[Rfam]
RNA sequence: CGGGCGGUCCACUCCCAGGUGGCGUCCUCGCGGAUCAGGGCGGUCUCGCCGAGGUAGGCGCCGUCGGCGAGGACGCCGAGGACGGCCUCGUCGCCGUACGGCCCCUCGCCGAUCUGCUCGAUCCGGCCGUGGGCGAGGAGGUACACCCGGUCGGUGGGGGUGCCCGCGACGGCCAGGGUCUCGCCCGCCGCGUACUCCCGCUGGGUGCAGCGGGAGGCGAGCUCGGACAGCGCGUCCUCGUCCUCGUAACCGCGCAGGGCGGGGAGUUCGCCGAGUUCGGCGGGGAUCACCGCGACGCGCUCGCCCGUCUGGACGAAGGUGACGCGCCCGUCCCCGACGGAGUAGCUGAGCCUCCGGUUCACCCGGUACGUGCCGCCCUGCACCUGGACCCACGGCAGCGUCCGCAGCAGCCACCGGGAGGUGAUCUCCUGCAUCUGCGGGGCCGACUUGGUGGUCGUGGCGAGGUUCCGCGCGGCGGCGGUGCCGAGACUCUGCUGCGGCGCCUGCUG
Numbered sequence: 001c002g003g004g005c006g007g008u009c010c011a012c013u014c015c016c017a018g019g020u021g022g023c024g025u026c027c028u029c030g031c032g033g034a035u036c037a038g039g040g041c042g043g044u045c046u047c048g049c050c051g052a053g054g055u056a057g058g059c060g061c062c063g064u065c066g067g068c069g070a071g072g073a074c075g076c077c078g079a080g081g082a083c084g085g086c087c088u089c090g091u092c093g094c095c096g097u098a099c100g101g102c103c104c105c106u107c108g109c110c111g112a113u114c115u116g117c118u119c120g121a122u123c124c125g126g127c128c129g130u131g132g133g134c135g136a137g138g139a140g141g142u143a144c145a146c147c148c149g150g151u152c153g154g155u156g157g158g159g160g161u162g163c164c165c166g167c168g169a170c171g172g173c174c175a176g177g178g179u180c181u182c183g184c185c186c187g188c189c190g191c192g193u194a195c196u197c198c199c200g201c202u203g204g205g206u207g208c209a210g211c212g213g214g215a216g217g218c219g220a221g222c223u224c225g226g227a228c229a230g231c232g233c234g235u236c237c238u239c240g241u242c243c244u245c246g247u248a249a250c251c252g253c254g255c256a257g258g259g260c261g262g263g264g265a266g267u268u269c270g271c272c273g274a275g276u277u278c279g280g281c282g283g284g285g286a287u288c289a290c291c292g293c294g295a296c297g298c299g300c301u302c303g304c305c306c307g308u309c310u311g312g313a314c315g316a317a318g319g320u321g322a323c324g325c326g327c328c329c330g331u332c333c334c335c336g337a338c339g340g341a342g343u344a345g346c347u348g349a350g351c352c353u354c355c356g357g358u359u360c361a362c363c364c365g366g367u368a369c370g371u372g373c374c375g376c377c378c379u380g381c382a383c384c385u386g387g388a389c390c391c392a393c394g395g396c397a398g399c400g401u402c403c404g405c406a407g408c409a410g411c412c413a414c415c416g417g418g419a420g421g422u423g424a425u426c427u428c429c430u431g432c433a434u435c436u437g438c439g440g441g442g443c444c445g446a447c448u449u450g451g452u453g454g455u456c457g458u459g460g461c462g463a464g465g466u467u468c469c470g471c472g473c474g475g476c477g478g479c480g481g482u483g484c485c486g487a488g489a490c491u492c493u494g495c496u497g498c499g500g501c502g503c504c505u506g507c508u509g
Base pairs, nucleotide, nucleotide: 006390007389008388009387010386011385016380018328019327021325023321024320025319026318028316029315035313036312038310039309040308041307042306047303048302054233055232061226062225063224065111066110067109068108075103080099082097083096084095085094086093116222117221118220119219122217123216127212130209132206134204136202137201140198141197143196150191154189157186158185159184161178166173167172234296235295236294240290241289244286245285250282253279254278256277257276259271260270261269329342331340332339355375356374357373360372361371362370391431392430394428395427397425399423400422401421403418405416407415437476438475440473442471443470445468446467447465448464449463451461452460477508478507480504481503482502484500485499486498487496488495
The family of this 509-nucleotide sequence from Streptomyces sp. SID2131 is "Saccharopolyspora sRNA 350". For this family Rfam cites "Prediction and characterization of small non-coding RNAs related to secondary metabolites in Saccharopolyspora erythraea" (Liu et al., PLoS One, 2013). Its family is annotated with regulation of secondary metabolite biosynthetic process in the Gene Ontology. Rfam 15.1 lists 1,170 matches to the family in 705 species. Pairs were carried over by alignment from the consensus structure, which was predicted with RNAfold.